[Rfam]
Rfam assigns this 151-nucleotide sequence from Streptomyces sp. WM6386 to the family "gntR-DTE RNA". Taxonomically the source falls in Streptomyces (Bacteria, Actinomycetota, Actinomycetes, Streptomycetaceae). The family's RNA type in Rfam is small RNA. The match comes from Rfam's covariance-model search (109 bits).
RNA sequence: CGGGUGACGGCCGCCGGCGGCCACUUCCCCGCGCACCGGCUCUGGAGAACAGCCCUCGGGAUCAUCCCUUCCUCACGGGAGGUCAACCCGUUGGAUGCCACCUGGUGUGCGCCGCCCUGCUGGCGUCAGAGCAGUGACGAUGACGCACCCG
Numbered sequence: 001c002g003g004g005u006g007a008c009g010g011c012c013g014c015c016g017g018c019g020g021c022c023a024c025u026u027c028c029c030c031g032c033g034c035a036c037c038g039g040c041u042c043u044g045g046a047g048a049a050c051a052g053c054c055c056u057c058g059g060g061a062u063c064a065u066c067c068c069u070u071c072c073u074c075a076c077g078g079g080a081g082g083u084c085a086a087c088c089c090g091u092u093g094g095a096u097g098c099c100a101c102c103u104g105g106u107g108u109g110c111g112c113c114g115c116c117c118u119g120c121u122g123g124c125g126u127c128a129g130a131g132c133a134g135u136g137a138c139g140a141u142g143a144c145g146c147a148c149c150c151g
Base pairs, nucleotide, nucleotide: 016116017115018114019113020112021111031110032109033108034107035106036105037104038103039102043100044099045098050097051096053094054093